Source information: The family of this 156-nucleotide RNA from Millerozyma farinosa is "Small nucleolar RNA snR8". The family's consensus secondary structure was predicted with WAR. Rfam classes the family as an H/ACA-box small nucleolar RNA. For this family Rfam cites "Genetic analysis of small nuclear RNAs in Saccharomyces cerevisiae: viable sextuple mutant" (Parker et al., Mol Cell Biol, 1988). Its Rfam clan is "SNORA56 clan".
[Rfam]
RNA sequence: UUUUCCAUUAUACCUCAAGCUUCCUAUUCACUGCACCAUUCUUUUCUAUGAAUGACUGGAGGGGAAAAGGAAGCGAGAUCGACUUCGAAUUACUUCCUCAUACUAUCUAGUCUUAAAUGAAAUGGCUUAAAUGGAUUCUGAGUGUUCGAGACAUGU
Numbered sequence: 001u002u003u004u005c006c007a008u009u010a011u012a013c014c015u016c017a018a019g020c021u022u023c024c025u026a027u028u029c030a031c032u033g034c035a036c037c038a039u040u041c042u043u044u045u046c047u048a049u050g051a052a053u054g055a056c057u058g059g060a061g062g063g064g065a066a067a068a069g070g071a072a073g074c075g076a077g078a079u080c081g082a083c084u085u086c087g088a089a090u091u092a093c094u095u096c097c098u099c100a101u102a103c104u105a106u107c108u109a110g111u112c113u114u115a116a117a118u119g120a121a122a123u124g125g126c127u128u129a130a131a132u133g134g135a136u137u138c139u140g141a142g143u144g145u146u147c148g149a150g151a152c153a154u155g156u
Stems, first nucleotide, its partner, number of pairs: 019074002022071002031061002034058002037054005084150005092143003103134003108129003112125002115123001
Dot-bracket structure: ..................((.((.......((.((.(((((........)))))..)).))........)).)).........(((((...(((........(((..(((.((.(.......))).)))..)))......)))..)))))......